[Rfam]
RNA sequence: AGAGUGUUAUGAUGUUGGAGCUUUGCUCCGAGUCUAGCUCAGCGCUACUCCCCAAGUUUUUAGCUUGGGGAG
Numbered sequence: 001a002g003a004g005u006g007u008u009a010u011g012a013u014g015u016u017g018g019a020g021c022u023u024u025g026c027u028c029c030g031a032g033u034c035u036a037g038c039u040c041a042g043c044g045c046u047a048c049u050c051c052c053c054a055a056g057u058u059u060u061u062a063g064c065u066u067g068g069g070g071a072g
Stems, first nucleotide, its partner, number of pairs: 002040004011034003017029005048072009
Dot-bracket structure: .((((.....(((...(((((...)))))..)))..)))).......(((((((((.......)))))))))

A member of the RNA family "L17 ribosomal protein downstream element" from Enterococcus thailandicus, 72 nucleotides long. By type it is a cis-regulatory element. The organism belongs to Enterococcus, within Bacteria. The match comes from Rfam's covariance-model search (60 bits). Pairs were carried over by alignment from the consensus structure, which is taken from published work.